[Rfam]
Nucleotides: 055
Base pairs, nucleotide, nucleotide: 004021005020006019007018008017009016010015025044026043027042029040030039031038032037
Number, partner (000 for none) and nucleotide at each position: 001000u002000c003000a004021c005020c006019u007018c008017u009016c010015c011000c012000u013000u014000g015010g016009g017008a018007g019006a020005g021004g022000u023000c024000u025044g026043a027042g028000g029040c030039u031038g032037c033000u034000u035000u036000a037032g038031c039030a040029g041000g042027c043026u044025c045000a046000g047000g048000g049000u050000g051000a052000g053000g054000g055000c